[Rfam]
RNA sequence: GAUCCGAUAGUAUGGUAGAAAGAUAAAGAUUCAUAUAUGAAUCUUUCUACCAUACUAUCCAUUUUUAUUAUUCUAAUGUAGAAAGAUAGAAACGGAAUA
Numbered sequence: 001g002a003u004c005c006g007a008u009a010g011u012a013u014g015g016u017a018g019a020a021a022g023a024u025a026a027a028g029a030u031u032c033a034u035a036u037a038u039g040a041a042u043c044u045u046u047c048u049a050c051c052a053u054a055c056u057a058u059c060c061a062u063u064u065u066u067a068u069u070a071u072u073c074u075a076a077u078g079u080a081g082a083a084a085g086a087u088a089g090a091a092a093c094g095g096a097a098u099a
Base pairs, nucleotide, nucleotide: 006059007058008057009056010055011054012053013052014051015050016049017048018047019046020045021044022043023042
Overview
Plastid-psbM 3UTR RNA: a 99-nucleotide sequence from Leitneria floridana. The organism belongs to Leitneria, within Eukaryota. The literature on the family includes a 2023 paper in Plant Commun by Richter et al., "Retrograde signaling in plants: A critical review focusing on the GUN pathway and beyond". Rfam's curators put it in the seed alignment. About the family: Plastid psbM is a non-coding RNA (ncRNA) recognised in plastids. It was found in the three prime untranslated region (3UTR) of psbM gene, its 3UTR location suggests a role in transcript maturation. Rfam classes the family as a cis-regulatory element.